RNA: mir-980 microRNA precursor family
RNA sequence: AGUUUCUCGUUGCCAUUCAUCGGACAGUUUUUGCAGUUUUUCUAGCAAAAACUGUCUGAUGAAUGGCAACGAGAAACU
Numbered sequence: 001a002g003u004u005u006c007u008c009g010u011u012g013c014c015a016u017u018c019a020u021c022g023g024a025c026a027g028u029u030u031u032u033g034c035a036g037u038u039u040u041u042c043u044a045g046c047a048a049a050a051a052c053u054g055u056c057u058g059a060u061g062a063a064u065g066g067c068a069a070c071g072a073g074a075a076a077c078u
Base pairs, nucleotide, nucleotide: 004075005074006073007072008071009070010069011068012067013066014065015064017062018061019060020059023056024055030051031050032049033046034045